[Rfam]
RNA: U4atac minor spliceosomal RNA
RNA sequence: ACCUUCCUUGUCUGGGGGUGGAUUGGGAUGAUCAAUGAGCGAUUAGUGAGACCAUCCCUGCUAACACCUAACCAACACAUCAAGCACCACCUGAGCUCUUCUGCUCAGGCCACGGUGCAAUUUUUGGAACC
Dot-bracket structure: .....((((.....))))..(.(.(.((((.((.....((.....))..)).)))).).))......................(((((.((((((........))))))....))))).............